[Rfam]
RNA sequence: GUUUUGAACAUGAGAAUUGGAGGAAAUCGAAUCCAUCCCCAGUUGGUUCUAUGGAUUCAAUUUCCUCCAAUAUCUCACCUUCAGAUG
Numbered sequence: 001g002u003u004u005u006g007a008a009c010a011u012g013a014g015a016a017u018u019g020g021a022g023g024a025a026a027u028c029g030a031a032u033c034c035a036u037c038c039c040c041a042g043u044u045g046g047u048u049c050u051a052u053g054g055a056u057u058c059a060a061u062u063u064c065c066u067c068c069a070a071u072a073u074c075u076c077a078c079c080u081u082c083a084g085a086u087g
Stems, first nucleotide, its partner, number of pairs: 004084005011077004016071006023064005029058002032055002
Notes:
The family of this 87-nucleotide RNA from Phoenix dactylifera is "MIR2275 microRNA precursor family". It scores 69 bits against the family's covariance model. Pairs were carried over by alignment from the consensus structure, which was predicted with RNAalifold.